[Rfam]
RNA: UnaL2 LINE 3' element
Organism: Salvelinus namaycush
RNA sequence: ACCCAAAUAACUUGUAAGUCGCUCUGGAUAAGAGCGUCUGCUAAAUGACUUAAA
Numbered sequence: 001a002c003c004c005a006a007a008u009a010a011c012u013u014g015u016a017a018g019u020c021g022c023u024c025u026g027g028a029u030a031a032g033a034g035c036g037u038c039u040g041c042u043a044a045a046u047g048a049c050u051u052a053a054a
Base pairs, nucleotide, nucleotide: 013043014041015040016039020036021035022034023033024032025031